[Rfam]
RNA sequence: CCUGUUGUGUGACCAACAGUAGCCUAGGGAGACAUGCGUCGCUGGUAACGGCGGGGUGUGAAGCUCUCCUGACAACGUCCCCCGUAAGGCACGGAUCGACCGCGAGGUCGUCCGUGGAAACUCCGAGCAGUAACGGGGUGGAGGGG
Number, nucleotide and partner (000 for none) at each position: 001c000002c019003u018004g017005u016006u015007g014008u000009g000010u000011g000012a000013c000014c007015a006016a005017c004018a003019g002020u000021a000022g000023c000024c000025u000026a000027g000028g069029g068030a067031g066032a065033c060034a059035u058036g057037c056038g000039u054040c053041g052042c051043u050044g049045g000046u000047a000048a000049c044050g043051g042052c041053g040054g039055g000056g037057u036058g035059u034060g033061a000062a000063g000064c000065u032066c031067u030068c029069c028070u000071g000072a000073c000074a000075a000076c000077g000078u000079c000080c000081c000082c089083c088084g000085u000086a000087a000088g083089g082090c116091a115092c114093g113094g000095a000096u000097c000098g000099a000100c107101c106102g000103c000104g000105a000106g101107g100108u000109c000110g000111u000112c000113c093114g092115u091116g090117g000118a000119a000120a139121c138122u137123c136124c135125g134126a000127g000128c000129a000130g000131u000132a000133a000134c125135g124136g123137g122138g121139u120140g000141g000142a000143g000144g000145g000146g000
RNA: Group II catalytic intron D1-D4-7
Organism: Rhodanobacter sp. MP7CTX1